Rfam assigns this 139-nucleotide RNA sequence from Muraenolepis orangiensis to the family "U4 spliceosomal RNA".
[Rfam]
RNA sequence: AUUGUUUACCAGAAGCAAUAUCAUAGUCUGUAAAGGACAUCUAAGAUGUGAUUAUUGCUGGUUAAAAUCUGAACGCAAUACCCCGCUGGGAUGACAUUAAACAGUCAACCAUGGCUGUUUUUGCAGUGCCAAAAGGGAC
Numbered sequence: 001a002u003u004g005u006u007u008a009c010c011a012g013a014a015g016c017a018a019u020a021u022c023a024u025a026g027u028c029u030g031u032a033a034a035g036g037a038c039a040u041c042u043a044a045g046a047u048g049u050g051a052u053u054a055u056u057g058c059u060g061g062u063u064a065a066a067a068u069c070u071g072a073a074c075g076c077a078a079u080a081c082c083c084c085g086c087u088g089g090g091a092u093g094a095c096a097u098u099a100a101a102c103a104g105u106c107a108a109c110c111a112u113g114g115c116u117g118u119u120u121u122u123g124c125a126g127u128g129c130c131a132a133a134a135g136g137g138a139c
Stems, first nucleotide, its partner, number of pairs: 020052005026047003034042003085115003089110002092107004128139001130137001

Rfam's curators write: U4 small nuclear RNA (U4 snRNA) is a component of the major U2-dependent spliceosome. It is annotated as a spliceosomal small nuclear RNA.